[Rfam]
RNA: c-di-AMP riboswitch aptamer (ydaO/yuaA leader)
RNA sequence: GUUUAUUAAGUGCUGAAUCCAGACGAGCAUAACGUUUGGUACGGGGGAGCUUUAUAUGGGGUGAAUGUUUCUUCUUGUAAACUAGGAAAUACCUCUUUCCGAAUCCGUCAACUAACCUCGGAAGCAACAGGGAGGAUAACA
Numbered sequence: 001g002u003u004u005a006u007u008a009a010g011u012g013c014u015g016a017a018u019c020c021a022g023a024c025g026a027g028c029a030u031a032a033c034g035u036u037u038g039g040u041a042c043g044g045g046g047g048a049g050c051u052u053u054a055u056a057u058g059g060g061g062u063g064a065a066u067g068u069u070u071c072u073u074c075u076u077g078u079a080a081a082c083u084a085g086g087a088a089a090u091a092c093c094u095c096u097u098u099c100c101g102a103a104u105c106c107g108u109c110a111a112c113u114a115a116c117c118u119c120g121g122a123a124g125c126a127a128c129a130g131g132g133a134g135g136a137u138a139a140c141a
Stems, first nucleotide, its partner, number of pairs: 011126004019039007042120005051058001059106003067082004085100004